A member of the RNA family "mir-252 microRNA precursor family" from Apolygus lucorum, 96 nucleotides long. Its family is annotated with RISC complex and miRNA-mediated post-transcriptional gene silencing in the Gene Ontology. The family has 44 seed sequences and 422 matches in Rfam 15.1.

[Rfam]
RNA sequence: UGAAUAAGUUGAGCACUUGUGCAGCAGGUGUAAAAAGACUUUUGUAAAAAGAUAUUUUACCUUCUACACCUGCUGCACAAGUGCUCAGUUUAUUUU
Numbered sequence: 001u002g003a004a005u006a007a008g009u010u011g012a013g014c015a016c017u018u019g020u021g022c023a024g025c026a027g028g029u030g031u032a033a034a035a036a037g038a039c040u041u042u043u044g045u046a047a048a049a050a051g052a053u054a055u056u057u058u059a060c061c062u063u064c065u066a067c068a069c070c071u072g073c074u075g076c077a078c079a080a081g082u083g084c085u086c087a088g089u090u091u092a093u094u095u096u
Stems, first nucleotide, its partner, number of pairs: 002095006010087010024073009